[Rfam]
RNA: Small nucleolar RNA SNORA72
Organism: Jaculus jaculus
RNA sequence: AUGUGUCAGCACUUUAUUUUUAUUAGGAGUGAGAAACAAGGCUACACAUUUGCUAUAUGAGACCAUGUACAUGUCCCGAGACCUUGUUCUUUCCUUGGCUCUGGGUUCAUACAUGCUUGUGAUAAAC
Numbered sequence: 001a002u003g004u005g006u007c008a009g010c011a012c013u014u015u016a017u018u019u020u021u022a023u024u025a026g027g028a029g030u031g032a033g034a035a036a037c038a039a040g041g042c043u044a045c046a047c048a049u050u051u052g053c054u055a056u057a058u059g060a061g062a063c064c065a066u067g068u069a070c071a072u073g074u075c076c077c078g079a080g081a082c083c084u085u086g087u088u089c090u091u092u093c094c095u096u097g098g099c100u101c102u103g104g105g106u107u108c109a110u111a112c113a114u115g116c117u118u119g120u121g122a123u124a125a126a127c
Stems, first nucleotide, its partner, number of pairs: 001051001012040003017035006062120002065117001067116002077104001079102003083098002086095001